This 164-nucleotide RNA sequence from Streptomyces sp. Tue6028 belongs to the Rfam family "c-di-AMP riboswitch aptamer (ydaO/yuaA leader)". Rfam's curators write: This family represents a conserved RNA structure found upstream of the ydaO and yuaA genes in Bacillus subtilis and related genes in other bacteria. NCBI's taxonomy places the organism under Bacteria, Bacillati, Kitasatosporales, Streptomycetaceae, Streptomyces. Gene Ontology terms of the family: regulation of gene expression and cyclic-di-AMP binding.

[Rfam]
RNA sequence: ACGCGUCAAGCGCCGUGGGCAGGAGCGGGGGACCCAAGGUAAGUGCCGCGAACGGUUGUUGGACCGGGAGCGGCUAGGGGUGGAGCCGAGCGCUGGAGCGCACGGCCGGGCACUCACCCGCCCGAACCCGACAGCUCACCUCGCAGGCGUCGGUGAGGGGAUCC
Numbered sequence: 001a002c003g004c005g006u007c008a009a010g011c012g013c014c015g016u017g018g019g020c021a022g023g024a025g026c027g028g029g030g031g032a033c034c035c036a037a038g039g040u041a042a043g044u045g046c047c048g049c050g051a052a053c054g055g056u057u058g059u060u061g062g063a064c065c066g067g068g069a070g071c072g073g074c075u076a077g078g079g080g081u082g083g084a085g086c087c088g089a090g091c092g093c094u095g096g097a098g099c100g101c102a103c104g105g106c107c108g109g110g111c112a113c114u115c116a117c118c119c120g121c122c123c124g125a126a127c128c129c130g131a132c133a134g135c136u137c138a139c140c141u142c143g144c145a146g147g148c149g150u151c152g153g154u155g156a157g158g159g160g161a162u163c164c
Stems, first nucleotide, its partner, number of pairs: 004149004013022001025144006035077001078129003086105003108123004